[Rfam]
RNA: T-box leader
RNA sequence: AAAUUAGCUUUGAUAAGGAUAUGAGUUACUUAGAACGGUUUACAGAGAGGGAAGAGAAGCUGAAACUUCCUAACGCAGUCGAGUAGCUUACCACCUUUGAGCCGUAUUGGGGAAUUUAAGUAUCCAAUACCGUAUAUGCGACGUUACAGCACCAGAGCCAUAAGAUGAUAGCCGAUCUUAUGGGAAGUUGGGUGGAACCACGGAUCACACAUUCGUCCCUUUU
Numbered sequence: 001a002a003a004u005u006a007g008c009u010u011u012g013a014u015a016a017g018g019a020u021a022u023g024a025g026u027u028a029c030u031u032a033g034a035a036c037g038g039u040u041u042a043c044a045g046a047g048a049g050g051g052a053a054g055a056g057a058a059g060c061u062g063a064a065a066c067u068u069c070c071u072a073a074c075g076c077a078g079u080c081g082a083g084u085a086g087c088u089u090a091c092c093a094c095c096u097u098u099g100a101g102c103c104g105u106a107u108u109g110g111g112g113a114a115u116u117u118a119a120g121u122a123u124c125c126a127a128u129a130c131c132g133u134a135u136a137u138g139c140g141a142c143g144u145u146a147c148a149g150c151a152c153c154a155g156a157g158c159c160a161u162a163a164g165a166u167g168a169u170a171g172c173c174g175a176u177c178u179u180a181u182g183g184g185a186a187g188u189u190g191g192g193u194g195g196a197a198c199c200a201c202g203g204a205u206c207a208c209a210c211a212u213u214c215g216u217c218c219c220u221u222u223u
Base pairs, nucleotide, nucleotide: 007102008101015097016096017095018094027085028084029083030082031081038074039073040072049071050070051069052068053067054066105129106128107127108126109125110124111123131143132142133141158183159182160181161180162179163178164177165176166175190219191218192217200216201215202214203213204212